Rfam assigns this 266-nucleotide RNA sequence from Anaerosalibacter massiliensis to the family "Bacterial large signal recognition particle RNA".
Gene Ontology terms of the family: signal recognition particle, plasma membrane targeting and SRP-dependent cotranslational protein targeting to membrane, signal sequence recognition.
It is annotated as a non-coding RNA gene.
The match comes from Rfam's covariance-model search (226 bits).
The base pairs follow the family's consensus structure, which is taken from published work.
RNA sequence: CCGUGCUAGAUGGGGAGGUAGCGGUGCCCUGUAACCUGCAAUCCGCUAUAGCAGGAUUGAAUUCCUAGCUCCGGCUUAUUUAUUUUGGAGUCUGCCCUAAAUAAGUGAUGUUGACGAUUGGGUCCUACGCAAUGGAAAUUCAUGAACUCCGUCAGGUCCGGGAGGAAGCAGCGGUAAGUGAACACUUUCAUGUGCCGUGGGAGUGCCUGAUCCGAGUUAACUGUUUAGGUAACGUCUAGGAUAAUAAGUCUAAACUAGGUGCACGG
Numbered sequence: 001c002c003g004u005g006c007u008a009g010a011u012g013g014g015g016a017g018g019u020a021g022c023g024g025u026g027c028c029c030u031g032u033a034a035c036c037u038g039c040a041a042u043c044c045g046c047u048a049u050a051g052c053a054g055g056a057u058u059g060a061a062u063u064c065c066u067a068g069c070u071c072c073g074g075c076u077u078a079u080u081u082a083u084u085u086u087g088g089a090g091u092c093u094g095c096c097c098u099a100a101a102u103a104a105g106u107g108a109u110g111u112u113g114a115c116g117a118u119u120g121g122g123u124c125c126u127a128c129g130c131a132a133u134g135g136a137a138a139u140u141c142a143u144g145a146a147c148u149c150c151g152u153c154a155g156g157u158c159c160g161g162g163a164g165g166a167a168g169c170a171g172c173g174g175u176a177a178g179u180g181a182a183c184a185c186u187u188u189c190a191u192g193u194g195c196c197g198u199g200g201g202a203g204u205g206c207c208u209g210a211u212c213c214g215a216g217u218u219a220a221c222u223g224u225u226u227a228g229g230u231a232a233c234g235u236c237u238a239g240g241a242u243a244a245u246a247a248g249u250c251u252a253a254a255c256u257a258g259g260u261g262c263a264c265g266g
Stems, first nucleotide, its partner, number of pairs: 001266006009058003012030004017025001019023001035055005064259005070253001073250005080244010093231002097228006105221002107218003116212008124201006130192002133190005139182005149174004157166003
Dot-bracket structure: ((((((..(((((((.(.(...).).))))....(((((...........)))))))).....(((((.(..(((((..((((((((((...((..((((((..(((((......((((((((((((((((.(((((.(((((.....((((....(((....)))....))))...)))))...)))))))...))))))...))))))))...))).)).)))))).))...)))))))))).)))))..).))))).))))))
For this family Rfam cites "SRPDB: Signal Recognition Particle Database" (Rosenblad et al., Nucleic Acids Res, 2003).